RNA sequence: GUGACGAAGGUAGAAGGAACUCCCGGUGUGAUAUAUGAUUCGACUAUAUCACAGCAGUAGUUACCUGAUACUUUUAACAC
Numbered sequence: 001g002u003g004a005c006g007a008a009g010g011u012a013g014a015a016g017g018a019a020c021u022c023c024c025g026g027u028g029u030g031a032u033a034u035a036u037g038a039u040u041c042g043a044c045u046a047u048a049u050c051a052c053a054g055c056a057g058u059a060g061u062u063a064c065c066u067g068a069u070a071c072u073u074u075u076a077a078c079a080c
Stems, first nucleotide, its partner, number of pairs: 003078001006075006015066003018062004023057001025055001027053009
Overview:
Rfam assigns this 80-nucleotide RNA from Culex quinquefasciatus to the family "mir-2944 microRNA precursor family". Rfam 15.1 lists 66 matches to the family in 42 species.